[Rfam]
A member of the RNA family "FMN riboswitch aptamer (RFN element)" from Zhenhengia yiwuensis, 128 nucleotides long. Rfam describes the family as follows. The RFN element is a highly conserved domain that is found frequently in the 5'-untranslated regions of prokaryotic mRNAs that encode for flavin mononucleotide (FMN) biosynthesis and transport proteins. Lineage of the source: Bacteria > Bacillota > Lachnospirales > Lachnospiraceae > Zhenhengia. On this family, see Vitreschak et al., Nucleic Acids Res 2002: "Regulation of riboflavin biosynthesis and transport genes in bacteria by transcriptional and translational attenuation". The match comes from Rfam's covariance-model search (122 bits).
RNA sequence: UUAAUUCUUCAGGGCAGGGUGAAAUUCCCGACCGGCGGUGAUAGUCCGCGACUACAUGCUUUUUAAGUAUGUACUGAUUUGGUGAAAUUCCAAAACCGACAGUAAAGUCUGGAUGGUAGAAGAGUUGC
Numbered sequence: 001u002u003a004a005u006u007c008u009u010c011a012g013g014g015c016a017g018g019g020u021g022a023a024a025u026u027c028c029c030g031a032c033c034g035g036c037g038g039u040g041a042u043a044g045u046c047c048g049c050g051a052c053u054a055c056a057u058g059c060u061u062u063u064u065a066a067g068u069a070u071g072u073a074c075u076g077a078u079u080u081g082g083u084g085a086a087a088u089u090c091c092a093a094a095a096c097c098g099a100c101a102g103u104a105a106a107g108u109c110u111g112g113a114u115g116g117u118a119g120a121a122g123a124g125u126u127g128c
Stems, first nucleotide, its partner, number of pairs: 003126008017029003031108002033098002035049004044096002053073002078094005100111003